[Rfam]
RNA: Bacterial RNase P class A
RNA sequence: AAAGCAGGAGAGGCAAUCGCAAGAAAGUUUUAUUUUGUUUCCAAAAUAAAACUUUCUUGAGGAAAGUCCGGGCUCCCACAUGGUCAGGCUUGCUGGGUAAUUCCCAGUGCGGGCAACCGUGAGGAUAGUGCCACAGAAACAUACCGCCUAAUACUUUAUGUAUGGCAAGGGUGCAAGGGUGCGGUAAGAGCGCACCAGCAACAUUGAGAAGUGUUGGCUAGGUAAACCCCGGCUGGGAGCAAGGCUUAGUAGAUUUAUGACCAUUACAAAAUCUACUUUUAAGCGCCGCUUGAGACUGUGAAGUAAUUCCAGUCCUAGAUAGAUGAUUGCCCAUCUUUAUUAAGAUGAACAGAACCCGGCUUAUGACCUGCUUUCUAA
Dot-bracket structure: ((((((((..((((((((.(((((((((((((((((......)))))))))))))))))....[[[.[[[[[((((.....[....(((.(((((((.....)))))(((((....)))).)((...(((((...........(((((..((((.....)))))))..)).......((((((.......)))))).((((((((....))))))).)..)))..))))))))).))))...((((..((((((((.((....])).)).)))))).....)..)))......(((((.(((....))))))))..........))))))).......................]]]]]]]].)..))))))))....